The record is a 141-nucleotide RNA from Oryza punctata, which matches "small nucleolar RNA snoR137" in Rfam.
[Rfam]
RNA sequence: GUUGCUUCACGACUGGAAGAAUGGCCUGAUAAUAUAAUUGUUUGGUCAUUCUGUAGAGAGAGCAUAGAUUGAUUUUGGCCAGAAUUAAACAGCAUGGCGCCUUGCUACCCACGUCAGUGUUACCUGUCUCCUGGCACAUCU
Number, nucleotide and partner (000 for none) at each position: 001g000002u000003u064004g063005c062006u061007u060008c000009a000010c000011g000012a000013c000014u000015g000016g000017a000018a000019g051020a050021a049022u048023g047024g046025c045026c044027u000028g000029a000030u000031a000032a000033u000034a000035u000036a000037a000038u000039u000040g000041u000042u000043u000044g026045g025046u024047c023048a022049u021050u020051c019052u000053g000054u000055a000056g000057a000058g000059a000060g007061a006062g005063c004064a003065u000066a000067g000068a000069u000070u000071g000072a000073u000074u000075u000076u000077g000078g135079c134080c133081a132082g131083a000084a129085u000086u000087a000088a000089a000090c000091a121092g120093c119094a000095u116096g115097g114098c113099g112100c000101c000102u000103u000104g000105c000106u000107a000108c000109c000110c000111a000112c099113g098114u097115c096116a095117g000118u000119g093120u092121u091122a000123c000124c000125u000126g000127u000128c000129u084130c000131c082132u081133g080134g079135c078136a000137c000138a000139u000140c000141u000

Lineage of the source: Eukaryota > Spermatophyta > commelinids > Oryzeae > Oryza. It scores 59 bits against the family's covariance model. The literature on the family includes a 2009 paper in Nucleic Acids Res by Chen and Wu, "Mining small RNA sequencing data: a new approach to identify small nucleolar RNAs in Arabidopsis".